Shown here is a 58-nucleotide sequence, a member of the family "Glutamine riboswitch aptamer (glnA leader)".

RNA sequence: AUCGUUCAUUCACUUAAUUGUGGACGGAAGUAAGUGUAGUACGCUGAAGGAACGCAUC
Numbered sequence: 001a002u003c004g005u006u007c008a009u010u011c012a013c014u015u016a017a018u019u020g021u022g023g024a025c026g027g028a029a030g031u032a033a034g035u036g037u038a039g040u041a042c043g044c045u046g047a048a049g050g051a052a053c054g055c056a057u058c
Stems, first nucleotide, its partner, number of pairs: 003054005009024005027055001033045005
On this family, see Ren et al., Cell Rep 2015: "Structural and Dynamic Basis for Low-Affinity, High-Selectivity Binding of L-Glutamine by the Glutamine Riboswitch".